[Rfam]
RNA sequence: UGAUAACCAAGGAAGAAAAACCAUAUAGUUCUGGUAAUAAGGUCUAGAAGUUUCUACAAGCUACCCGCAAAGUAGCUUACUAUGGCAAGGGUCGUUUUUUUG
Numbered sequence: 001u002g003a004u005a006a007c008c009a010a011g012g013a014a015g016a017a018a019a020a021c022c023a024u025a026u027a028g029u030u031c032u033g034g035u036a037a038u039a040a041g042g043u044c045u046a047g048a049a050g051u052u053u054c055u056a057c058a059a060g061c062u063a064c065c066c067g068c069a070a071a072g073u074a075g076c077u078u079a080c081u082a083u084g085g086c087a088a089g090g091g092u093c094g095u096u097u098u099u100u101u102g
Base pairs, nucleotide, nucleotide: 021085022084023083024082025081029049030048031047032046033045034044058078059077060076061075062074063073064072
Purine riboswitch aptamer: a 102-nucleotide RNA from Enterococcus alcedinis. Gene Ontology term of the family: purine nucleobase biosynthetic process. Rfam describes the family as follows. Riboswitches are metabolite binding domains within certain messenger RNAs that serve as precision sensors for their corresponding targets. Allosteric rearrangement of mRNA structure is mediated by ligand binding, and this results in modulation of gene expression. A class of riboswitches that selectively recognises guanine and becomes saturated at concentrations as low as 5 nM. In Bacillus subtilis, this mRNA motif is located on at least five separate transcriptional units that together encode 17 genes that are mostly involved in purine transport and purine nucleotide biosynthesis. It has also been shown that some members of this family are specific for adenine instead. Hence this family are termed purine riboswitches. A search with the family's covariance model found it, with a score of 71 bits. The source organism's lineage runs through Bacteria, Bacillati, Lactobacillales, Enterococcaceae and Enterococcus. For this family Rfam cites "Adenine riboswitches and gene activation by disruption of a transcription terminator" (Mandal and Breaker, Nat Struct Mol Biol, 2004).